[Rfam]
RNA sequence: ACAACUACAAAGCUGAAUCUCCUUCUCCGGUAGCGGGGGAGCGAGAGCCGGGGAACCAAGGUGUUUCUGGGGUUUAUCUCUUACAAGAGCGCGCGUCCCGUGGCGUGUGGAGUAAGAGAGGGAGUCUUCCUGAUCAACCCGUCAGCUAACCCGGUAGGCAUAUAGGAAGAUUUG
Numbered sequence: 001a002c003a004a005c006u007a008c009a010a011a012g013c014u015g016a017a018u019c020u021c022c023u024u025c026u027c028c029g030g031u032a033g034c035g036g037g038g039g040a041g042c043g044a045g046a047g048c049c050g051g052g053g054a055a056c057c058a059a060g061g062u063g064u065u066u067c068u069g070g071g072g073u074u075u076a077u078c079u080c081u082u083a084c085a086a087g088a089g090c091g092c093g094c095g096u097c098c099c100g101u102g103g104c105g106u107g108u109g110g111a112g113u114a115a116g117a118g119a120g121g122g123a124g125u126c127u128u129c130c131u132g133a134u135c136a137a138c139c140c141g142u143c144a145g146c147u148a149a150c151c152c153g154g155u156a157g158g159c160a161u162a163u164a165g166g167a168a169g170a171u172u173u174g
Stems, first nucleotide, its partner, number of pairs: 012159003018046003047155006057069002070140003078118007122134001